A member of the RNA family "glmS glucosamine-6-phosphate activated ribozyme aptamer" from Hungatella hathewayi, 183 nucleotides long. From the family's description: This entry contains a glucosamine-6-phosphate activated ribozyme that is found in the mRNA for GlmS. GlmS is an enzyme that uses fructose-6-phosphate and glutamine to generate glucosamine-6-phosphate. The ribozyme catalyses self cleavage of the glmS mRNA that is thought to regulate GlmS activity. Rfam links the family to the GO terms catalytic activity and regulation of gene expression. The family's consensus secondary structure is taken from published work. A search with the family's covariance model found it, with a score of 45 bits.
[Rfam]
RNA sequence: UAGCAAAGCUAAGCGCCAUGCACCUGUAAGUACGAGCGUGAACGGUGAAGACCGGUACUGAAGGUUAACGAGGAGAAGAGUUUAUCGAAGAAUUCGGCGGAUGCUCUUCCAUGCCAUCCGGGCGUGUAUCCUGAACGAAAUAUGCGGGUAACCACAAAACAAACGCGCAGGAACCGGACUGAU
Dot-bracket structure: .....................((((.((..............................)).)))).........(((((.....((((.....)))).......)))))((((((.....))))))..(((((.........((.((....)).))...........)))))...........